[Rfam]
RNA: Small Cajal body specific RNA 16
RNA sequence: AUGGUCUGGGGAAAGGCUCCUACGUUGUUGAACGUGCCCAGUUGUGGGUGUGCAGCCUUGUACCAGGCAGCCCAAUCCUGACCUAAGUAAAUUCCCAGAAGUCUUUCCUGGAUUUUGAAUUUGUAGUAAGAGCUGUGGGCAUUCUAGCAGCAGUUCGAUGAUCAUGUAUGAUACCGCAAACAGGA
Numbered sequence: 001a002u003g004g005u006c007u008g009g010g011g012a013a014a015g016g017c018u019c020c021u022a023c024g025u026u027g028u029u030g031a032a033c034g035u036g037c038c039c040a041g042u043u044g045u046g047g048g049u050g051u052g053c054a055g056c057c058u059u060g061u062a063c064c065a066g067g068c069a070g071c072c073c074a075a076u077c078c079u080g081a082c083c084u085a086a087g088u089a090a091a092u093u094c095c096c097a098g099a100a101g102u103c104u105u106u107c108c109u110g111g112a113u114u115u116u117g118a119a120u121u122u123g124u125a126g127u128a129a130g131a132g133c134u135g136u137g138g139g140c141a142u143u144c145u146a147g148c149a150g151c152a153g154u155u156c157g158a159u160g161a162u163c164a165u166g167u168a169u170g171a172u173a174c175c176g177c178a179a180a181c182a183g184g185a
Stems, first nucleotide, its partner, number of pairs: 003083004008078003015072004019067003024063002027056004032051003095111002098107003120180005126174003131169001136164003140160004146155003